Rfam assigns this 151-nucleotide RNA from Enterobacteriaceae bacterium strain FGI 57 to the family "sok antitoxin (CssrC)". A search with the family's covariance model found it, with a score of 105 bits. Gene Ontology term of the family: mRNA binding. For this family Rfam cites "An integrated approach for finding overlooked genes in Shigella" (Peng et al., PLoS One, 2011). The family has 91 seed sequences and 305 matches in Rfam 15.1. Rfam classes the family as an antitoxin RNA. The base pairs follow the family's consensus structure, which is taken from published work. Rfam's curators write: Also identified in Shigella as CssrC.
RNA sequence: GGGUGCUUGAGGCUGUCUGUCUCAGGCAUUUGCAGGAUGGCAGAUAGAGAAAAGCCCCGAGUGAUUUUUCAAUCAACCCGAGGCCCCCUAUAUGCUCAGCCCAUGUAGAGUGCCUCUUACAGACCGUAAGGUCAAGGAAAAGAGCGCUAUG
Numbered sequence: 001g002g003g004u005g006c007u008u009g010a011g012g013c014u015g016u017c018u019g020u021c022u023c024a025g026g027c028a029u030u031u032g033c034a035g036g037a038u039g040g041c042a043g044a045u046a047g048a049g050a051a052a053a054g055c056c057c058c059g060a061g062u063g064a065u066u067u068u069u070c071a072a073u074c075a076a077c078c079c080g081a082g083g084c085c086c087c088c089u090a091u092a093u094g095c096u097c098a099g100c101c102c103a104u105g106u107a108g109a110g111u112g113c114c115u116c117u118u119a120c121a122g123a124c125c126g127u128a129a130g131g132u133c134a135a136g137g138a139a140a141a142g143a144g145c146g147c148u149a150u151g
Base pairs, nucleotide, nucleotide: 001058002057003056005055006054007053008052013047014046015045016044017043018042019041020040021039059079061077062076063074064073065072066071080116081115082114083113084112086110088108089107090106091105092104093103094102120142125137